[Rfam]
RNA sequence: UCUGGUGAUGAUGACACACUUGCCCUCACUGAGAACGCUGUUCAAUAAUGAGAACCUCACCAUGUACUCAGAGGAGCUGAGCCAGA
Numbered sequence: 001u002c003u004g005g006u007g008a009u010g011a012u013g014a015c016a017c018a019c020u021u022g023c024c025c026u027c028a029c030u031g032a033g034a035a036c037g038c039u040g041u042u043c044a045a046u047a048a049u050g051a052g053a054a055c056c057u058c059a060c061c062a063u064g065u066a067c068u069c070a071g072a073g074g075a076g077c078u079g080a081g082c083c084a085g086a
Stems, first nucleotide, its partner, number of pairs: 001086006
A member of the RNA family "Small nucleolar RNA SNORD103/SNORD85" from Chelydra serpentina, 86 nucleotides long. Gene Ontology terms of the family: nucleolus and RNA processing. For this family Rfam cites "Identification of 13 novel human modification guide RNAs" (Vitali et al., Nucleic Acids Res, 2003). The organism belongs to Chelydra, within Eukaryota.